[Rfam]
RNA sequence: GACCUGGACCCAUGCGGUGAGGACGCCCAAAUCUUGUCAGGACCGGAAGGUAGCAGCAAUACGGGAUGCUCGUCACAGGCGUGGAAUCCGGGUCGCC
Numbered sequence: 001g002a003c004c005u006g007g008a009c010c011c012a013u014g015c016g017g018u019g020a021g022g023a024c025g026c027c028c029a030a031a032u033c034u035u036g037u038c039a040g041g042a043c044c045g046g047a048a049g050g051u052a053g054c055a056g057c058a059a060u061a062c063g064g065g066a067u068g069c070u071c072g073u074c075a076c077a078g079g080c081g082u083g084g085a086a087u088c089c090g091g092g093u094c095g096c097c
Stems, first nucleotide, its partner, number of pairs: 004091005010084005017076004022071001026065003034059004042051003